[Rfam]
RNA sequence: UGGUAGAUGCACCCUAAUAAAUUACAGCCUUCAGCCUAAAGCUGGGGGCUUUUCUU
Numbered sequence: 001u002g003g004u005a006g007a008u009g010c011a012c013c014c015u016a017a018u019a020a021a022u023u024a025c026a027g028c029c030u031u032c033a034g035c036c037u038a039a040a041g042c043u044g045g046g047g048g049c050u051u052u053u054c055u056u
Base pairs, nucleotide, nucleotide: 002013003012004011028048029047030046031045032044033043034042035041